[Rfam]
RNA sequence: UUUUAUAAGAGUUUGAUCCUGGCUCAGGAUGAACGCUGGCUGUGUGCCUAAUACAUGCAUGUCGAGCGAGGUUAGCAAUAACCUAGCGGCGAAUGGGUGAGUAACACGUGCUUAAUCUACCUUUUAGAUUGGAAUACCCAUUGGAAACAAUGGCUAAUGCCGGAUACGCAUGGAACCGCAUGGUUCCGUUGUGAAAGGCGCUGUAAGGCGCCACUAAAAGAUGAGGGUGCGGAACAUUAGUUAGUUGGUGAGGUAAUGGCCCACCAAGACUAUGAUGUUUAGCCGGGUCGAGAGACUGAACGGCCACAUUGGGACUGAGAUACGGCCCAAACUCCUACGGGAGGCAGCAGUAGGGAAUAUUCCACAAUGAGCGAAAGCUUGAUGGAGCGACACAGCGUGCACGAUGAAGGUCUUCGGAUUGUAAAGUGCUGUUAUAAGGGAAGAACAUUUGCAAUAGGAAAUGAUUGCAGACUGACGGUACCUUGUCAGAAAGCGAUGGCUAACUAUGUGCCAGCAGCCGCGGUAAUACAUAGGUCGCAAGCGUUAUCCGGAAUUAUUG
Dot-bracket structure: ........(((((.......))))).((((.((((((.(((((((((....(((.(((..(((..((.((((((....)))))).)))))......(((.......(((((((..((...(((((((.((((.....((((((....))))))......))))....((((((((((....)))))))).))....((((((....)))))).)))))))..))))))))).(((....(((..((((((.(.......).)))))))))......)))..((((((((....))))...))))))).(((((............))))).((((....))))...)))))).).....(.(((...(((((....))))).)))).)).))))))..((((......((((....)))).....))))...(((((((...(.....((((((..........)))))).....)....))))))...)..(((((......(((((.....((....)).......)))))))))).))))))))))..........
Shown here is a 559-nucleotide part of an RNA from Metamycoplasma hominis, a member of the family "Bacterial small subunit ribosomal RNA". Lineage of the source: Bacteria > Mycoplasmoidales > Metamycoplasmataceae > Metamycoplasma > Metamycoplasma hominis.